The record is a 176-nucleotide sequence from Oryza sativa, which matches "MIR807 microRNA precursor family" in Rfam.
A reference for the family is Luo et al. (2006), "Rice embryogenic calli express a unique set of microRNAs, suggesting regulatory roles of microRNAs in plant post-embryogenic development", FEBS Lett.
It scores 139 bits against the family's covariance model.
[Rfam]
RNA sequence: AACCACACUAUCGAUGGAUGGAUUCACCCCUGAGAUGACGUGGUUAUUCCAUCUAGGAUGAGGACGUGGCAUCAUAUUAAUUUCAUGCGAUGGCUGGUUAUAGGAUGCCAUAUCCUCGUCCUAGGUGAAACAGUCACAUCAUCUUGCGGGUGAAUCUAUACAUCGAUAGUGUAGUU
Dot-bracket structure: (((.(((.(((((((..((.((((((((..(((.((((..(((((.((..((.((.((....((....(((((.(((.(......(..........)).))).)))))....))....)).)).))..)).)))))..)))).)))..)))))))).))..))))))).))).)))